[Rfam]
Shown here is a 131-nucleotide sequence, a member of the family "Group II catalytic intron D1-D4-7". The pairing is the family consensus, mapped onto this sequence. The literature on the family includes a 2001 paper in Trends Genet by Bonen and Vogel, "The ins and outs of group II introns". Group II introns are found in rRNA, tRNA and mRNA of organelles in fungi, plants and protists, and also in mRNA in bacteria.
RNA sequence: UAUUGUUCCAUCAAUAGUAGCCUGAAGAGGCGUACGUGACUGGCAACGGUCGGGUGCGAAGCCCUCUUGACAACGACGUUCCAACCUAAGCAUCAUAGGCGAAGAAUGUCAAAGCUGACUGAUAUGAGUAA
Numbered sequence: 001u002a003u004u005g006u007u008c009c010a011u012c013a014a015u016a017g018u019a020g021c022c023u024g025a026a027g028a029g030g031c032g033u034a035c036g037u038g039a040c041u042g043g044c045a046a047c048g049g050u051c052g053g054g055u056g057c058g059a060a061g062c063c064c065u066c067u068u069g070a071c072a073a074c075g076a077c078g079u080u081c082c083a084a085c086c087u088a089a090g091c092a093u094c095a096u097a098g099g100c101g102a103a104g105a106a107u108g109u110c111a112a113a114g115c116u117g118a119c120u121g122a123u124a125u126g127a128g129u130a131a
Stems, first nucleotide, its partner, number of pairs: 002015004026067005031058005037052006085099004107124005